[Rfam]
RNA sequence: GUCGGUCUUCGGUAGUGGCUCCCCGGCAUUCUCGAUACUCGAGCAGCCCGGCGAGCUUCGAUCGAUGACCGCC
Numbered sequence: 001g002u003c004g005g006u007c008u009u010c011g012g013u014a015g016u017g018g019c020u021c022c023c024c025g026g027c028a029u030u031c032u033c034g035a036u037a038c039u040c041g042a043g044c045a046g047c048c049c050g051g052c053g054a055g056c057u058u059c060g061a062u063c064g065a066u067g068a069c070c071g072c073c
Stems, first nucleotide, its partner, number of pairs: 001073001003071005009065005017057005023051004029045001
A member of the RNA family "Actino-pnp RNA" from Antrihabitans cavernicola, 73 nucleotides long.
It scores 55 bits against the family's covariance model.
It is annotated as a cis-regulatory element.